[Rfam]
RNA sequence: AGGCUAUGAUGACGAAGUACAUUUCUCGAAUCUGAUGUUAUUCUCUUUGAUGUUGGACCAAAGAGCAACUAGCUAUACACACGACGUGUGUGGCUCUCUGAUGACUGCGUUUGUGCGUGUCUGAGCCUU
Numbered sequence: 001a002g003g004c005u006a007u008g009a010u011g012a013c014g015a016a017g018u019a020c021a022u023u024u025c026u027c028g029a030a031u032c033u034g035a036u037g038u039u040a041u042u043c044u045c046u047u048u049g050a051u052g053u054u055g056g057a058c059c060a061a062a063g064a065g066c067a068a069c070u071a072g073c074u075a076u077a078c079a080c081a082c083g084a085c086g087u088g089u090g091u092g093g094c095u096c097u098c099u100g101a102u103g104a105c106u107g108c109g110u111u112u113g114u115g116c117g118u119g120u121c122u123g124a125g126c127c128u129u
Base pairs, nucleotide, nucleotide: 001128002127003126004125
A member of the RNA family "small nucleolar RNA snoR126" from Morella rubra, 129 nucleotides long. Its family is annotated with RNA processing and nucleolus in the Gene Ontology. Taxonomically the source falls in Morella (Eukaryota, Streptophytina, fabids, Fagales). The literature on the family includes a 2009 paper in Nucleic Acids Res by Chen and Wu, "Mining small RNA sequencing data: a new approach to identify small nucleolar RNAs in Arabidopsis". By type it is a C/D-box small nucleolar RNA.